[Rfam]
RNA sequence: CGGUAAGGACGAAAAAACACGGCCCCGUAGGUAGUCGGGGCGUGCCGGAAACCCGGCACCCGUAACCUGCCUCCCCCGGGAGGUUGUCCGUCGUCCCUCUGUUGGGG
Numbered sequence: 001c002g003g004u005a006a007g008g009a010c011g012a013a014a015a016a017a018c019a020c021g022g023c024c025c026c027g028u029a030g031g032u033a034g035u036c037g038g039g040g041c042g043u044g045c046c047g048g049a050a051a052c053c054c055g056g057c058a059c060c061c062g063u064a065a066c067c068u069g070c071c072u073c074c075c076c077c078g079g080g081a082g083g084u085u086g087u088c089c090g091u092c093g094u095c096c097c098u099c100u101g102u103u104g105g106g107g
Stems, first nucleotide, its partner, number of pairs: 005098001007096005022041006042059006069084006
A member of the RNA family "azaaromatic riboswitch aptamer (yjdF RNA)" from Aminomonas paucivorans, 107 nucleotides long.